[Rfam]
RNA sequence: AAAAGAGUAAGAGGCGAGCGUUAAGUGCUGAGUGGAUGGGAUGUUGCCCUCAGACGAAAAAGCAAUUGUGUUUUGCGACUCCUCUCUGCAUCCGCUUGA
Numbered sequence: 001a002a003a004a005g006a007g008u009a010a011g012a013g014g015c016g017a018g019c020g021u022u023a024a025g026u027g028c029u030g031a032g033u034g035g036a037u038g039g040g041a042u043g044u045u046g047c048c049c050u051c052a053g054a055c056g057a058a059a060a061a062g063c064a065a066u067u068g069u070g071u072u073u074u075g076c077g078a079c080u081c082c083u084c085u086c087u088g089c090a091u092c093c094g095c096u097u098g099a
Stems, first nucleotide, its partner, number of pairs: 003097003010087005016081003019077003025055002028053005034048002039093005059074004

Shown here is a 99-nucleotide sequence from Marinilactibacillus sp. 15R, a member of the family "THF (Tetrahydrofolate) riboswitch aptamer". NCBI's taxonomy places the organism under Bacteria, Bacillati, Bacillota, Lactobacillales, Marinilactibacillus. On this family, see Ames et al., Chem Biol 2010: "A eubacterial riboswitch class that senses the coenzyme tetrahydrofolate". It scores 65 bits against the family's covariance model.